[Rfam]
RNA: GA-cis RNA
RNA sequence: UGAAGGAGGUGCCGUUAUGGACGAAGUCCAUAAUUAAAAUCGGCACCGACGACGUGCCGCCGAGCGGAGGCGAGGGGGCGAUACAUUGA
Numbered sequence: 001u002g003a004a005g006g007a008g009g010u011g012c013c014g015u016u017a018u019g020g021a022c023g024a025a026g027u028c029c030a031u032a033a034u035u036a037a038a039a040u041c042g043g044c045a046c047c048g049a050c051g052a053c054g055u056g057c058c059g060c061c062g063a064g065c066g067g068a069g070g071c072g073a074g075g076g077g078g079c080g081a082u083a084c085a086u087u088g089a
Stems, first nucleotide, its partner, number of pairs: 008047006016032006056079003060075002064071002
Dot-bracket structure: .......((((((..((((((.....)))))).........))))))........(((.((..((....))..)).)))..........